[Rfam]
RNA sequence: GAAUAACUUCGUUAGGUGAGGCUCCUGUGCUGGAGAUAUGCUGCUGCCCAGAAACAUCCAAAGAUGCCAAUGGGUCAACAGAAACUAUCGACAUAAGGUAGUUUUUAAUGUAGCUGGAUUCAUUUCCUAUGCCGCACAGUGCUAAAGCUCUACGAAUGGAGGCCUAU
Numbered sequence: 001g002a003a004u005a006a007c008u009u010c011g012u013u014a015g016g017u018g019a020g021g022c023u024c025c026u027g028u029g030c031u032g033g034a035g036a037u038a039u040g041c042u043g044c045u046g047c048c049c050a051g052a053a054a055c056a057u058c059c060a061a062a063g064a065u066g067c068c069a070a071u072g073g074g075u076c077a078a079c080a081g082a083a084a085c086u087a088u089c090g091a092c093a094u095a096a097g098g099u100a101g102u103u104u105u106u107a108a109u110g111u112a113g114c115u116g117g118a119u120u121c122a123u124u125u126c127c128u129a130u131g132c133c134g135c136a137c138a139g140u141g142c143u144a145a146a147g148c149u150c151u152a153c154g155a156a157u158g159g160a161g162g163c164c165u166a167u
Base pairs, nucleotide, nucleotide: 007161008160009159010158011153012152013096015149016148017147020143021142022141025139026138027137028136029135030134032133033132040114041113042112043111044110046075047074048073049072050071055066056065057064058063081105082104083103084102087099088098089097116127117126118125
The record is a 167-nucleotide RNA sequence from Ornithinibacillus hominis, which matches "M-box riboswitch aptamer (ykoK leader)" in Rfam. Taxonomically the source falls in Ornithinibacillus (Bacteria, Bacillati, Bacillota, Caryophanales). From the family's description: M-box riboswitch, also know as ykoK leader is described as a metaloregulatory RNA that sense divalent metals and function as a genetic control element of genes related to divalent metal transport in bacteria. Rfam 15.1 lists 1,095 matches to the family in 932 species. A search with the family's covariance model found it, with a score of 142 bits.